[Rfam]
drum RNA: a 109-nucleotide RNA sequence.
Firmicutes, Bacteroidetes (1 example), Proteobacteria (2 examples), Spirochaetes (2 examples).

RNA sequence: AAACGUUGAUAUUAAGCGCUGUUUCAAGAUGCAGUGUUUAAUGGAGUUUUGUAAGGGUUGUAUAUUUACCACAACUUGAAUAGGAAUUUUCCGAAAGAAAAUAUGCAAA
Numbered sequence: 001a002a003a004c005g006u007u008g009a010u011a012u013u014a015a016g017c018g019c020u021g022u023u024u025c026a027a028g029a030u031g032c033a034g035u036g037u038u039u040a041a042u043g044g045a046g047u048u049u050u051g052u053a054a055g056g057g058u059u060g061u062a063u064a065u066u067u068a069c070c071a072c073a074a075c076u077u078g079a080a081u082a083g084g085a086a087u088u089u090u091c092c093g094a095a096a097g098a099a100a101a102u103a104u105g106c107a108a109a
Stems, first nucleotide, its partner, number of pairs: 001049004011042012024079004062104003083092003

The family's consensus secondary structure is taken from published work. It is one of the family's seed sequences.